RNA: ACEA small nucleolar RNA U3
RNA sequence: UCGACUGUACUCGAACAGGAUCACUUCUAUAGUAGAUCCGCUUGUUCACUGUCACAGCGACAGACAACACCUUAAGUCGUGACGAUGAGUUGUACAUCCCGCCAUCACUUGAAGGGAGGCUCCCUGCGUGGUCUGAUUUUCAAACCUUCGCUGGGCAGCUUUGAUGAUACCGGGGCAGAUGGCGUAAGUUUUCUGCUUCAAUGGCGAGGAUGAUUCUGAACGACU
Numbered sequence: 001u002c003g004a005c006u007g008u009a010c011u012c013g014a015a016c017a018g019g020a021u022c023a024c025u026u027c028u029a030u031a032g033u034a035g036a037u038c039c040g041c042u043u044g045u046u047c048a049c050u051g052u053c054a055c056a057g058c059g060a061c062a063g064a065c066a067a068c069a070c071c072u073u074a075a076g077u078c079g080u081g082a083c084g085a086u087g088a089g090u091u092g093u094a095c096a097u098c099c100c101g102c103c104a105u106c107a108c109u110u111g112a113a114g115g116g117a118g119g120c121u122c123c124c125u126g127c128g129u130g131g132u133c134u135g136a137u138u139u140u141c142a143a144a145c146c147u148u149c150g151c152u153g154g155g156c157a158g159c160u161u162u163g164a165u166g167a168u169a170c171c172g173g174g175g176c177a178g179a180u181g182g183c184g185u186a187a188g189u190u191u192u193c194u195g196c197u198u199c200a201a202u203g204g205c206g207a208g209g210a211u212g213a214u215u216c217u218g219a220a221c222g223a224c225u
Base pairs, nucleotide, nucleotide: 002040003039006035008034009033010032011031017028018027019026020025045069050064052062076224077223078222079221080220095212096211097210098209099208100206101205102204103203104202105201110169111168118160119159120158123154176195177194178193179192181190